This 55-nucleotide sequence from Osyris alba belongs to the Rfam family "Plastid-psbA-3 3UTR RNA". Taxonomically the source falls in Osyris (Eukaryota, Viridiplantae, Streptophytina, eudicotyledons).
RNA sequence: AAAGGAGCAAUAACCUAUUUCUUGUUCUAUCAAGAAGAUUGAUAUUGCUCCUUUA
Numbered sequence: 001a002a003a004g005g006a007g008c009a010a011u012a013a014c015c016u017a018u019u020u021c022u023u024g025u026u027c028u029a030u031c032a033a034g035a036a037g038a039u040u041g042a043u044a045u046u047g048c049u050c051c052u053u054u055a
Stems, first nucleotide, its partner, number of pairs: 001054012014041001019036006
About this RNA: For this family Rfam cites "Retrograde signaling in plants: A critical review focusing on the GUN pathway and beyond" (Richter et al., Plant Commun, 2023). It is one of the family's seed sequences. The family's RNA type in Rfam is cis-regulatory element.